[Rfam]
RNA: Eukaryotic large subunit ribosomal RNA, nucleotides 1431 to 1866
Organism: Sugiyamaella lignohabitans
RNA sequence: GGUAGUAGCAAAUAUUCAAAUGAGAUCUUUGAAGACUGAAGUGGGGAAAGGUUCCGUGUGAACAGCAGUUGGCCACGGGUUAGUCGAUCCUAAGAGAUGGGGAAGCUCCGUUUCAAUGUGCUUGAUUUUUCAAGCCACCAUCGAAAGGGAAUCCGGUUAAUAUUCCGGAACUUGGAUAUGGAUUCUCCACGGUAACGUAACUGAAUGUGGAGACGUCGGCACAAGCCCUGGGAGGAGUUCUCUUUUCUUCUCAACAGUCUAUCACCCUGAAAUUAGUUUGUCUAGAGCUAGGGUCUUCUGACUGGAAGAGCCUGGUACCUUUACCAGGUCCGGUGCGCUUGUGACGUCCCUUGAAAAUCCACAGGAAGAAAUAGUUUUCAUGCCAAGUCGUACUCAUAACCGCAGCAGGUCUCCAAGGUGAACAGCCUCUAGUUGA
Numbered sequence: 001g002g003u004a005g006u007a008g009c010a011a012a013u014a015u016u017c018a019a020a021u022g023a024g025a026u027c028u029u030u031g032a033a034g035a036c037u038g039a040a041g042u043g044g045g046g047a048a049a050g051g052u053u054c055c056g057u058g059u060g061a062a063c064a065g066c067a068g069u070u071g072g073c074c075a076c077g078g079g080u081u082a083g084u085c086g087a088u089c090c091u092a093a094g095a096g097a098u099g100g101g102g103a104a105g106c107u108c109c110g111u112u113u114c115a116a117u118g119u120g121c122u123u124g125a126u127u128u129u130u131c132a133a134g135c136c137a138c139c140a141u142c143g144a145a146a147g148g149g150a151a152u153c154c155g156g157u158u159a160a161u162a163u164u165c166c167g168g169a170a171c172u173u174g175g176a177u178a179u180g181g182a183u184u185c186u187c188c189a190c191g192g193u194a195a196c197g198u199a200a201c202u203g204a205a206u207g208u209g210g211a212g213a214c215g216u217c218g219g220c221a222c223a224a225g226c227c228c229u230g231g232g233a234g235g236a237g238u239u240c241u242c243u244u245u246u247c248u249u250c251u252c253a254a255c256a257g258u259c260u261a262u263c264a265c266c267c268u269g270a271a272a273u274u275a276g277u278u279u280g281u282c283u284a285g286a287g288c289u290a291g292g293g294u295c296u297u298c299u300g301a302c303u304g305g306a307a308g309a310g311c312c313u314g315g316u317a318c319c320u321u322u323a324c325c326a327g328g329u330c331c332g333g334u335g336c337g338c339u340u341g342u343g344a345c346g347u348c349c350c351u352u353g354a355a356a357a358u359c360c361a362c363a364g365g366a367a368g369a370a371a372u373a374g375u376u377u378u379c380a381u382g383c384c385a386a387g388u389c390g391u392a393c394u395c396a397u398a399a400c401c402g403c404a405g406c407a408g409g410u411c412u413c414c415a416a417g418g419u420g421a422a423c424a425g426c427c428u429c430u431a432g433u434u435g436a
Stems, first nucleotide, its partner, number of pairs: 015033006034434004043414004049394002054078005063071002085390003089148002094142002096112003100109003120135003152169005172386004177382005182376001189198003206363006215348001217346002220343007228333003231251006255304005264294006273285004311328007400409002416428004